[Rfam]
RNA sequence: CGCCAUGACGAUGAAUUUGCUUCUCGUAGGAAUGCGCACACGCGUGGCGGUCUGAGGACCGCCCGGCUGAUGCCACGUGUGCGCGAUCAAAGGGCCCAAGAGGCCCUUUUUUAUUGCCCGAA
Numbered sequence: 001c002g003c004c005a006u007g008a009c010g011a012u013g014a015a016u017u018u019g020c021u022u023c024u025c026g027u028a029g030g031a032a033u034g035c036g037c038a039c040a041c042g043c044g045u046g047g048c049g050g051u052c053u054g055a056g057g058a059c060c061g062c063c064c065g066g067c068u069g070a071u072g073c074c075a076c077g078u079g080u081g082c083g084c085g086a087u088c089a090a091a092g093g094g095c096c097c098a099a100g101a102g103g104c105c106c107u108u109u110u111u112u113a114u115u116g117c118c119c120g121a122a
Stems, first nucleotide, its partner, number of pairs: 009026001029118002032115001033085010046063005066073002090107001092106005
This 122-nucleotide sequence from Jiella flava belongs to the Rfam family "Rhizobiales sRNA Atu_C8".